[Rfam]
RNA sequence: GUGCGAAAACUGCCGAAUUCCCGCGCACUGGGAAACGGGGGGAACCAGUCUUUACCGGGUGAAUUGGCUUUGCUCCGCGCAGAAGCCAUAGGGAACCUUCAACCGAACCCUCCAGCUAACCUCGUAGGCACUUGGAAGGAGCUUC
Numbered sequence: 001g002u003g004c005g006a007a008a009a010c011u012g013c014c015g016a017a018u019u020c021c022c023g024c025g026c027a028c029u030g031g032g033a034a035a036c037g038g039g040g041g042g043a044a045c046c047a048g049u050c051u052u053u054a055c056c057g058g059g060u061g062a063a064u065u066g067g068c069u070u071u072g073c074u075c076c077g078c079g080c081a082g083a084a085g086c087c088a089u090a091g092g093g094a095a096c097c098u099u100c101a102a103c104c105g106a107a108c109c110c111u112c113c114a115g116c117u118a119a120c121c122u123c124g125u126a127g128g129c130a131c132u133u134g135g136a137a138g139g140a141g142c143u144u145c
Stems, first nucleotide, its partner, number of pairs: 011130004018034006035125006048055001057110003065088007091104002